[Rfam]
This 72-nucleotide RNA from Medicago truncatula belongs to the Rfam family "MIR2629 microRNA precursor family". The source organism's lineage runs through Eukaryota, Euphyllophyta, fabids, Hologalegina and Medicago.

RNA sequence: UGCCAAGGUUUUCCUCGGUAGUUAACUGCAGCCGGUUUUAGUUUUCCUCGAUAGUUAACUGUCGAGGGGUAA
Numbered sequence: 001u002g003c004c005a006a007g008g009u010u011u012u013c014c015u016c017g018g019u020a021g022u023u024a025a026c027u028g029c030a031g032c033c034g035g036u037u038u039u040a041g042u043u044u045u046c047c048u049c050g051a052u053a054g055u056u057a058a059c060u061g062u063c064g065a066g067g068g069g070u071a072a
Base pairs, nucleotide, nucleotide: 012068013067015065016064017063018062019061020060021059022058023057024056025055026054027053028052